RNA: radC RNA
RNA sequence: ACGCUUGGCCCAUGUUCCGCUGCUCCGUCAGCGACAUGCCCAGGUCUCCACGAUCUUCAAGGCGACGCCGGAGGUUUCCACUCCGUUGAUCGAUCCCGUUCGCUUUCGGCAUCCACGCGCGAACGACCAUCGGUUUCGAUGGUGAUGC
Numbered sequence: 001a002c003g004c005u006u007g008g009c010c011c012a013u014g015u016u017c018c019g020c021u022g023c024u025c026c027g028u029c030a031g032c033g034a035c036a037u038g039c040c041c042a043g044g045u046c047u048c049c050a051c052g053a054u055c056u057u058c059a060a061g062g063c064g065a066c067g068c069c070g071g072a073g074g075u076u077u078c079c080a081c082u083c084c085g086u087u088g089a090u091c092g093a094u095c096c097c098g099u100u101c102g103c104u105u106u107c108g109g110c111a112u113c114c115a116c117g118c119g120c121g122a123a124c125g126a127c128c129a130u131c132g133g134u135u136u137c138g139a140u141g142g143u144g145a146u147g148c
Base pairs, nucleotide, nucleotide: 011038012037013036014035016033019032020031021030022029023027044066045065046064048062049061052091053090054089055088067087069085070084071083072082073081119148120147121146126143127142128141129140130139131138132137